[Rfam]
RNA sequence: CCAAUUGAUGAUGAAGAGCUCCUCCAGCACAUCUUGACGGGACUUGAUGAGGAAUAUAAUCCCAUCGUCUCGGCCAUCCUUGCCUGCAUUGAGGGCACACCCUUCUAUGCGCUCGUCACCCAGCUCCUCAGCUUCGAAC
Numbered sequence: 001c002c003a004a005u006u007g008a009u010g011a012u013g014a015a016g017a018g019c020u021c022c023u024c025c026a027g028c029a030c031a032u033c034u035u036g037a038c039g040g041g042a043c044u045u046g047a048u049g050a051g052g053a054a055u056a057u058a059a060u061c062c063c064a065u066c067g068u069c070u071c072g073g074c075c076a077u078c079c080u081u082g083c084c085u086g087c088a089u090u091g092a093g094g095g096c097a098c099a100c101c102c103u104u105c106u107a108u109g110c111g112c113u114c115g116u117c118a119c120c121c122a123g124c125u126c127c128u129c130a131g132c133u134u135c136g137a138a139c
Stems, first nucleotide, its partner, number of pairs: 005137004088108002091105003
A member of the RNA family "Small nucleolar RNA Z247" from Setaria italica, 139 nucleotides long.
Rfam 15.1 lists 7,071 matches to the family in 142 species.
By type it is a C/D-box small nucleolar RNA.
A search with the family's covariance model found it, with a score of 50 bits.
The source organism's lineage runs through Eukaryota, Streptophytina, Liliopsida, Paniceae and Setaria.